[Rfam]
RNA: Flavo-1 RNA
Organism: Flavobacterium caeni
RNA sequence: CCCUAGCCCGGAUGGAAGCGGCAUCCUUUAAAAAAAGCCCCUGUGUUAGGGGCUUUUUUUAAAGAUACAGCGGACAGCCGGAACAGCU
Numbered sequence: 001c002c003c004u005a006g007c008c009c010g011g012a013u014g015g016a017a018g019c020g021g022c023a024u025c026c027u028u029u030a031a032a033a034a035a036a037g038c039c040c041c042u043g044u045g046u047u048a049g050g051g052g053c054u055u056u057u058u059u060u061a062a063a064g065a066u067a068c069a070g071c072g073g074a075c076a077g078c079c080g081g082a083a084c085a086g087c088u
Stems, first nucleotide, its partner, number of pairs: 009080003013076002018071002023066003029061015